About this RNA: Rfam assigns this 87-nucleotide RNA sequence from Cnephaeus nilssonii to the family "mir-9195 microRNA precursor family". Gene Ontology terms of the family: miRNA-mediated post-transcriptional gene silencing and RISC complex. The base pairs follow the family's consensus structure, which was predicted with RNAalifold. A search with the family's covariance model found it, with a score of 99 bits.
RNA sequence: AGAGGCCCUCCGCGGCCAGGGUAGAAUGCUUGCCUCAUCACCGCGGCGAUGAAGCAAGCAUUCUGCCAGGCCACUCAUGCUGCCCGC
Numbered sequence: 001a002g003a004g005g006c007c008c009u010c011c012g013c014g015g016c017c018a019g020g021g022u023a024g025a026a027u028g029c030u031u032g033c034c035u036c037a038u039c040a041c042c043g044c045g046g047c048g049a050u051g052a053a054g055c056a057a058g059c060a061u062u063c064u065g066c067c068a069g070g071c072c073a074c075u076c077a078u079g080c081u082g083c084c085c086g087c
Stems, first nucleotide, its partner, number of pairs: 004084003012074001014072004020067014037050003041046001